The record is a 209-nucleotide RNA from Cochlearius cochlearius, which matches "Small nucleolar RNA U3" in Rfam. It scores 146 bits against the family's covariance model. Small nucleolar RNAs (snoRNAs) are involved in the processing and modification of rRNA in the nucleolus.
RNA sequence: AGGACUAUACUUUCAGGGAUCAUUUCUGUAGUUGGUAACUAGAGGAGAGCGAUCUCCCCUGGUCGGCGUCACAAGCCACGAGGAGGAUGCGGUGCUGUCUCCUGAGCGCGAAGCGGGCGGGCGGCGCUGCUUGUGCAGGGGCCGCCCGCCAUUGAUGACCGUUCCCGGCCCGCAGGGGCUCGGGAGGGAGAGAGCACGGGCUGAGUGGU
Numbered sequence: 001a002g003g004a005c006u007a008u009a010c011u012u013u014c015a016g017g018g019a020u021c022a023u024u025u026c027u028g029u030a031g032u033u034g035g036u037a038a039c040u041a042g043a044g045g046a047g048a049g050c051g052a053u054c055u056c057c058c059c060u061g062g063u064c065g066g067c068g069u070c071a072c073a074a075g076c077c078a079c080g081a082g083g084a085g086g087a088u089g090c091g092g093u094g095c096u097g098u099c100u101c102c103u104g105a106g107c108g109c110g111a112a113g114c115g116g117g118c119g120g121g122c123g124g125c126g127c128u129g130c131u132u133g134u135g136c137a138g139g140g141g142c143c144g145c146c147c148g149c150c151a152u153u154g155a156u157g158a159c160c161g162u163u164c165c166c167g168g169c170c171c172g173c174a175g176g177g178g179c180u181c182g183g184g185a186g187g188g189a190g191a192g193a194g195c196a197c198g199g200g201c202u203g204a205g206u207g208g209u
Stems, first nucleotide, its partner, number of pairs: 002040002006035001009032003014028005050065005075209005092197005098191006106162003116150004122144004127138004165183002167180005

The base pairs follow the family's consensus structure, which is taken from published work. The literature on the family includes a 2010 paper in RNA Biol by Marz and Stadler, "Comparative analysis of eukaryotic U3 snoRNA". By type it is a C/D-box small nucleolar RNA.